[Rfam]
RNA sequence: UGGCUGCGGGUGCUCUGACUAGGUUGCACUACUGUGCUGUGAGAAGCAGUGCAAUGGUAUUGUCAAAGCAUCUGGGACCAGC
Numbered sequence: 001u002g003g004c005u006g007c008g009g010g011u012g013c014u015c016u017g018a019c020u021a022g023g024u025u026g027c028a029c030u031a032c033u034g035u036g037c038u039g040u041g042a043g044a045a046g047c048a049g050u051g052c053a054a055u056g057g058u059a060u061u062g063u064c065a066a067a068g069c070a071u072c073u074g075g076g077a078c079c080a081g082c
Base pairs, nucleotide, nucleotide: 002079003078007074008073009072010071011070012069013068014067016065017064018063019062023055024054025053026052027051028050029049030048034040

The family of this 82-nucleotide RNA from Mus musculus is "mir-301 microRNA precursor family". Rfam 15.1 lists 1,415 matches to the family in 640 species. Taxonomically the source falls in Mus (Eukaryota, Boreoeutheria, Murinae, Mus).